[Rfam]
RNA sequence: GAAUAUGAAAUUCUCCGAUUUUACCAAACCUAAGGUCUAUCUAUGGUUAGUAAAACAGUAGGGUAUAAUUAGAAAUUUUUAUGCCUCCCAAUGGAAAGGAGAUAGUAGAAUUAUAAU
Numbered sequence: 001g002a003a004u005a006u007g008a009a010a011u012u013c014u015c016c017g018a019u020u021u022u023a024c025c026a027a028a029c030c031u032a033a034g035g036u037c038u039a040u041c042u043a044u045g046g047u048u049a050g051u052a053a054a055a056c057a058g059u060a061g062g063g064u065a066u067a068a069u070u071a072g073a074a075a076u077u078u079u080u081a082u083g084c085c086u087c088c089c090a091a092u093g094g095a096a097a098g099g100a101g102a103u104a105g106u107a108g109a110a111u112u113a114u115a116a117u
Base pairs, nucleotide, nucleotide: 003111004110006108012102013101014100015099016098019055020054021053022052023051024050026048028047029046030045034042035041061086062085063084064083065082066081067080068079071076087094088093
This 117-nucleotide sequence from Terrisporobacter othiniensis belongs to the Rfam family "Molybdenum/Tungsten riboswitch aptamer (Moco RNA motif)". Lineage of the source: Bacteria > Bacillota > Peptostreptococcales > Peptostreptococcaceae > Terrisporobacter. Its family is annotated with molybdenum ion binding, tungstate binding and regulation of gene expression in the Gene Ontology. Pairs were carried over by alignment from the consensus structure, which is taken from published work. For this family Rfam cites "in molybdenum cofactor and tungsten cofactor metabolism" (Regulski et al., Mol Microbiol, 2008).